[Rfam]
RNA sequence: AGGGCAGUAUCCUUUUAGUGGAACUGUACCGUUUGGAAAUCAUUGACAUUUGAAAAAUUCUGCCUUGAUCCACAUUAAUGGACGGGGACAGAGGG
Dot-bracket structure: .(((((((.((.........))))))).)).............................((((((((.(((........)))))))).)))....
RNA: pan motif